Shown here is an 86-nucleotide sequence from Xenopus laevis, a member of the family "small Cajal body-specific RNA 18". Rfam 15.1 lists 406 matches to the family in 191 species. The organism belongs to Xenopus, within Eukaryota. The match comes from Rfam's covariance-model search (44 bits). scaRNAs are a specific class of small nuclear RNAs which localise to the Cajal bodies and guide the modification of RNA polymerase II transcribed spliceosomal RNAs U1, U2, U4, U5 and U12. This C/D box domain U91 (also known as U4-8) was identified by Darzacq and is predicted to guide the 2'O-ribose methylation of U4 snRNA C8. The literature on the family includes a 2004 paper in Curr Biol by Tycowski et al., "Guide RNAs with 5' caps and novel box C/D snoRNA-like domains for modification of snRNAs in metazoa".

[Rfam]
RNA sequence: UGGUCAGGGAUGACUAGCCCACUGCGCAAUCUGACUUCAUUUGAAGCAAAAGGAAGAAAACAGUGCUGAUUAAUAGUCUGAGACCA
Numbered sequence: 001u002g003g004u005c006a007g008g009g010a011u012g013a014c015u016a017g018c019c020c021a022c023u024g025c026g027c028a029a030u031c032u033g034a035c036u037u038c039a040u041u042u043g044a045a046g047c048a049a050a051a052g053g054a055a056g057a058a059a060a061c062a063g064u065g066c067u068g069a070u071u072a073a074u075a076g077u078c079u080g081a082g083a084c085c086a
Stems, first nucleotide, its partner, number of pairs: 002085004040050004